[Rfam]
RNA sequence: AGCUUAUCAAUGAUGUCCUAAAAAAUAAAUGUCUGAACAUAUGACUGCUAUAAUGAUUUCAGCAUUUAACUGAGAUAAGCU
Numbered sequence: 001a002g003c004u005u006a007u008c009a010a011u012g013a014u015g016u017c018c019u020a021a022a023a024a025a026u027a028a029a030u031g032u033c034u035g036a037a038c039a040u041a042u043g044a045c046u047g048c049u050a051u052a053a054u055g056a057u058u059u060c061a062g063c064a065u066u067u068a069a070c071u072g073a074g075a076u077a078a079g080c081u
Stems, first nucleotide, its partner, number of pairs: 002080007
RNA: Small nucleolar RNA SNORD72